[Rfam]
RNA sequence: GUCAAUAACCCAGCACUGAUUGCUUCACAAUACAGUGUGGGCUUGAGAAAUAGCCCUAGUUGACCAGACAGUGUGGGAGAGGAUCGUACUCGUUAUUACCACGCAGCCGUUACAGGCAAAGUUAGAGAACGUACUCUAGGAUGCGUGCCAGUUCUAGACCCUACAACGAAACGUUUAAACAAGCUUAACGGGUUAAGCUAGUGACGUAAUAGAAAGUACUGACCUGUAACAAUGUCAAGGCAAACAUUAC
Dot-bracket structure: ((((((.(.((.((.(((..............))).)).))((........))...).))))))..((((.(((((......................))))).....((((((((..(...........((..((((((((...[[[[.))))))))....))..(.(.(((((...((.(((((((....))))))).)))))))..).).......)..))))))))..))))..]]].].......